Shown here is a 193-nucleotide RNA, a member of the family "RgsA sRNA". About the family: This small RNA (sRNA) was computationally identified in the genome of the opportunistic pathogen Pseudomonas aeruginosa and its expression verified by northern blot analysis. P16 sRNA appears to be conserved across several Pseudomonas species and Azotobacter vinelandii. In these species it is consistently located downstream of a predicted TatD deoxyribonuclease gene. The sequence is in the family's curated seed alignment.
Nucleotides: 193
Base pairs, nucleotide, nucleotide: 039165040164041163042162043161086120087119088118089117091115092114094112096110097109121147122146123145124144125143126142127141128140129138171193172192173191174190176188177187178186
Number, partner (000 for none) and nucleotide at each position: 001000c002000a003000g004000c005000a006000a007000a008000g009000g010000c011000g012000g013000a014000c015000g016000u017000a018000u019000u020000c021000c022000a023000a024000a025000u026000c027000u028000g029000u030000u031000u032000a033000a034000a035000a036000a037000a038000c039165g040164a041163u042162c043161a044000g045000a046000a047000c048000c049000c050000g051000c052000u053000g054000g055000a056000u057000a058000c059000c060000c061000g062000u063000c064000a065000a066000u067000c068000c069000u070000g071000a072000u073000u074000a075000a076000u077000a078000c079000u080000u081000g082000g083000a084000a085000u086120g087119u088118u089117g090000g091115c092114g093000c094112g095000g096110c097109a098000a099000u100000c101000c102000c103000c104000c105000c106000a107000a108000g109097u110096g111000u112094u113000g114092c115091g116000c117089c118088g119087a120086u121147a122146a123145a124144g125143g126142u127141g128140a129138u130000c131000a132000a133000g134000g135000a136000g137000u138129g139000u140128u141127c142126g143125c144124c145123u146122u147121u148000g149000u150000u151000u152000a153000a154000c155000u156000c157000c158000u159000a160000a161043u162042g163041g164040u165039c166000u167000u168000a169000a170000c171193c172192c173191g174190g175000a176188u177187u178186c179000c180000c181000c182000c183000c184000c185000a186178g187177a188176g189000c190174c191173c192172g193171g
Pairs were carried over by alignment from the consensus structure, which was predicted with RNAalifold. Its family is annotated with response to oxidative stress, sRNA-mediated gene silencing and response to hydrogen peroxide in the Gene Ontology.